About this RNA:
The family of this 133-nucleotide sequence from Maylandia zebra is "U8 small nucleolar RNA". Taxonomically the source falls in Maylandia zebra complex (Eukaryota, Euteleostomi, Actinopterygii, Maylandia). The match comes from Rfam's covariance-model search (106 bits). It is annotated as a C/D-box small nucleolar RNA.

RNA sequence: UCGUCAGUGAGGUAUAUCCUUACCUGUUACUCCAUUUAUGGAGUUGCAGAAAAUGAUGAAUGGAGAGCUAUGAGAUAUGAUUAGUAUCUCCCUCUUUUGGGGAACAGCAACACCCCUUAAGAGCCAUUCUGAU
Number, nucleotide and partner (000 for none) at each position: 001u000002c000003g000004u000005c000006a000007g000008u000009g000010a000011g000012g000013u000014a000015u000016a000017u000018c000019c000020u000021u000022a000023c000024c049025u048026g047027u000028u046029a044030c043031u042032c041033c040034a000035u000036u000037u000038a000039u000040g033041g032042a031043g030044u029045u000046g028047c026048a025049g024050a000051a000052a000053a000054u000055g000056a000057u000058g000059a000060a000061u000062g000063g000064a000065g000066a000067g000068c000069u000070a000071u000072g090073a089074g000075a087076u086077a085078u083079g000080a000081u000082u000083a078084g000085u077086a076087u075088c000089u073090c072091c000092c000093u000094c000095u121096u120097u119098u000099g117100g116101g115102g114103a000104a000105c000106a000107g000108c000109a000110a000111c000112a000113c000114c102115c101116c100117u099118u000119a097120a096121g095122a000123g000124c000125c000126a000127u000128u000129c000130u000131g000132a000133u000